Record summary
The record is an 82-nucleotide sequence from Orchesella cincta, which matches "mir-46/mir-47/mir-281 microRNA precursor family" in Rfam. On this family, see Lau et al., Science 2001: "An abundant class of tiny RNAs with probable regulatory roles in Caenorhabditis elegans". Taxonomically the source falls in Orchesella (Eukaryota, Ecdysozoa, Panarthropoda, Orchesellidae). The match comes from Rfam's covariance-model search (58 bits).
[Rfam]
RNA sequence: UAGCUUUACCCUUCAAGAGAGCAAUCCGUCGACAGUUUAGUUUACGUACUGUCAUGGAGACGCUCUCUUUAAGUCGGAAAGC
Number, nucleotide and partner (000 for none) at each position: 001u000002a000003g000004c000005u000006u000007u000008a000009c000010c000011c000012u000013u000014c000015a069016a068017g067018a066019g000020a064021g063022c062023a000024a000025u058026c057027c056028g055029u000030c000031g053032a052033c051034a000035g049036u048037u000038u000039a000040g000041u000042u000043u000044a000045c000046g000047u000048a036049c035050u000051g033052u032053c031054a000055u028056g027057g026058a025059g000060a000061c000062g022063c021064u020065c000066u018067c017068u016069u015070u000071a000072a000073g000074u000075c000076g000077g000078a000079a000080a000081g000082c000